[Rfam]
RNA sequence: UUUGAGGGGAAUGUUGUCUGGCUCGGGGCUACUUUUUAAUCUCUCGCUCUAUCUAGUAUCUUUUAAUCUCUCUUUGCUCGAUCUUUCUUGAUCCUUACAUCUCAAGAAAAGAUCAGCUAAAGAGAUGAGAGUAGAUGUUGUUUGUAGAUCUCGGACCAGGCUUCAUUCCCCCCAAA
Numbered sequence: 001u002u003u004g005a006g007g008g009g010a011a012u013g014u015u016g017u018c019u020g021g022c023u024c025g026g027g028g029c030u031a032c033u034u035u036u037u038a039a040u041c042u043c044u045c046g047c048u049c050u051a052u053c054u055a056g057u058a059u060c061u062u063u064u065a066a067u068c069u070c071u072c073u074u075u076g077c078u079c080g081a082u083c084u085u086u087c088u089u090g091a092u093c094c095u096u097a098c099a100u101c102u103c104a105a106g107a108a109a110a111g112a113u114c115a116g117c118u119a120a121a122g123a124g125a126u127g128a129g130a131g132u133a134g135a136u137g138u139u140g141u142u143u144g145u146a147g148a149u150c151u152c153g154g155a156c157c158a159g160g161c162u163u164c165a166u167u168c169c170c171c172c173c174a175a176a
Base pairs, nucleotide, nucleotide: 001176002175003174004173006171007170008169009168010167011166012165013164016161017160018159019158020157021156024153025152026151027150028149

A member of the RNA family "mir-166 microRNA precursor family" from Leersia perrieri, 176 nucleotides long. Gene Ontology terms of the family: miRNA-mediated post-transcriptional gene silencing and RISC complex. Taxonomically the source falls in Leersia (Eukaryota, Embryophyta, Magnoliopsida, Poaceae).